[Rfam]
RNA sequence: GGAGACGAACACGGGAGUCCGGUGAGCCGGGCUGAGAGGAAGCUGAUCAAGCUUCGACCGUCGAACCUGAUCUGGAUCAUGCCAGCGCAGGGAGGCAGAAUUCUCAACAU
Numbered sequence: 001g002g003a004g005a006c007g008a009a010c011a012c013g014g015g016a017g018u019c020c021g022g023u024g025a026g027c028c029g030g031g032c033u034g035a036g037a038g039g040a041a042g043c044u045g046a047u048c049a050a051g052c053u054u055c056g057a058c059c060g061u062c063g064a065a066c067c068u069g070a071u072c073u074g075g076a077u078c079a080u081g082c083c084a085g086c087g088c089a090g091g092g093a094g095g096c097a098g099a100a101u102u103c104u105c106a107a108c109a110u
Base pairs, nucleotide, nucleotide: 006098010094011061012060013059014058017032018031019030020029021028039055040054041053042052043051066091067090068089069088072085073084074083075082
Dot-bracket structure: .....(...(((((..(((((......)))))......(((((.......)))))..))))....((((..((((......))))..))))..)...)............